A member of the RNA family "mir-19 microRNA precursor family" from Ornithorhynchus anatinus, 78 nucleotides long. Rfam 15.1 lists 2,337 matches to the family in 651 species. A reference for the family is Mourelatos et al. (2002), "miRNPs: a novel class of ribonucleoproteins containing numerous microRNAs", Genes Dev. The family's consensus secondary structure was predicted with RNAalifold. It is one of the family's seed sequences. The organism belongs to Ornithorhynchus, within Eukaryota.
RNA sequence: GCUUACAGUCAGUUUUGCAGGUUUGCAUCCCAGCGUAUACAAAUUGCUGUGCAAAUCCAUGCAAAACUGAUUGUGAUG
Numbered sequence: 001g002c003u004u005a006c007a008g009u010c011a012g013u014u015u016u017g018c019a020g021g022u023u024u025g026c027a028u029c030c031c032a033g034c035g036u037a038u039a040c041a042a043a044u045u046g047c048u049g050u051g052c053a054a055a056u057c058c059a060u061g062c063a064a065a066a067c068u069g070a071u072u073g074u075g076a077u078g
Stems, first nucleotide, its partner, number of pairs: 003076017020058002022055007032048003